[Rfam]
RNA: mraW RNA
Organism: Rhodococcoides kyotonense
RNA sequence: ACCGCCGAGUGCCGCGAGGCCUCUGCCCGAUCAGAACCCUGACGUACUUCCCCGACGCCAGGUUUCGCAGAUCAGGACCCUGACGUUCUUCCCCAACGCCAGGUUCCCUAUCGGACAGGGACCUCGAGGCAUUCAGCACACCAU
Numbered sequence: 001a002c003c004g005c006c007g008a009g010u011g012c013c014g015c016g017a018g019g020c021c022u023c024u025g026c027c028c029g030a031u032c033a034g035a036a037c038c039c040u041g042a043c044g045u046a047c048u049u050c051c052c053c054g055a056c057g058c059c060a061g062g063u064u065u066c067g068c069a070g071a072u073c074a075g076g077a078c079c080c081u082g083a084c085g086u087u088c089u090u091c092c093c094c095a096a097c098g099c100c101a102g103g104u105u106c107c108c109u110a111u112c113g114g115a116c117a118g119g120g121a122c123c124u125c126g127a128g129g130c131a132u133u134c135a136g137c138a139c140a141c142c143a144u
Stems, first nucleotide, its partner, number of pairs: 010131004015126002018123002021120005027114005036105001038103004043098003